[Rfam]
RNA: Small nucleolar RNA SNORD19
RNA sequence: GAGAAAUGAUGAUCAUUCAAAUGGUCAGAAAGUACAUGUUUGACUGCUAAAGAUCCAACUCUGAUCUCACUCAAAUC
Numbered sequence: 001g002a003g004a005a006a007u008g009a010u011g012a013u014c015a016u017u018c019a020a021a022u023g024g025u026c027a028g029a030a031a032g033u034a035c036a037u038g039u040u041u042g043a044c045u046g047c048u049a050a051a052g053a054u055c056c057a058a059c060u061c062u063g064a065u066c067u068c069a070c071u072c073a074a075a076u077c
Base pairs, nucleotide, nucleotide: 001068002067003066004065